[Rfam]
RNA sequence: GACCUGGACCCACGCGAUUUCAACGCCCAAACCGUGUCAGGACCGGAAGGUAGCAGCACUACGGGAUGCUUGGAAUAGGCGUGGUCUCCGGGUCACU
Number, nucleotide and partner (000 for none) at each position: 001g000002a000003c000004c091005u090006g089007g088008a087009c000010c084011c083012a082013c081014g080015c000016g000017a076018u075019u074020u073021c072022a071023a000024c000025g000026c065027c064028c063029a000030a000031a000032c000033c000034g059035u058036g057037u056038c000039a000040g000041g000042a051043c050044c049045g000046g000047a000048a000049g044050g043051u042052a000053g000054c000055a000056g037057c036058a035059c034060u000061a000062c000063g028064g027065g026066a000067u000068g000069c000070u000071u022072g021073g020074a019075a018076u017077a000078g000079g000080c014081g013082u012083g011084g010085u000086c000087u008088c007089c006090g005091g004092g000093u000094c000095a000096c000097u000
Annotation:
A member of the RNA family "Bacterial small signal recognition particle RNA" from Leptolyngbya sp. FACHB-261, 97 nucleotides long. It is annotated as a non-coding RNA gene. A search with the family's covariance model found it, with a score of 65 bits. Gene Ontology terms of the family: SRP-dependent cotranslational protein targeting to membrane, signal sequence recognition and signal recognition particle, plasma membrane targeting.